[Rfam]
RNA sequence: UAAAGAAAAAGGCAAACUAUCUGAAAGGAUAGGACGCAAAGCUAAUGGGUCUACUAUACACAUGCGCCGUGUAUAAUGAUCGCCAGGCUGCCACU
Numbered sequence: 001u002a003a004a005g006a007a008a009a010a011g012g013c014a015a016a017c018u019a020u021c022u023g024a025a026a027g028g029a030u031a032g033g034a035c036g037c038a039a040a041g042c043u044a045a046u047g048g049g050u051c052u053a054c055u056a057u058a059c060a061c062a063u064g065c066g067c068c069g070u071g072u073a074u075a076a077u078g079a080u081c082g083c084c085a086g087g088c089u090g091c092c093a094c095u
Stems, first nucleotide, its partner, number of pairs: 012037002017032006040089004046085003049080003056074006

This 95-nucleotide RNA sequence from Lentibacillus cibarius belongs to the Rfam family "c-di-GMP-I riboswitch aptamer". Rfam's curators write: GEMM was predicted in a large-scale screen for bacterial structured RNA regulatory elements. Lineage of the source: Bacteria > Bacillota > Bacilli > Caryophanales > Lentibacillus.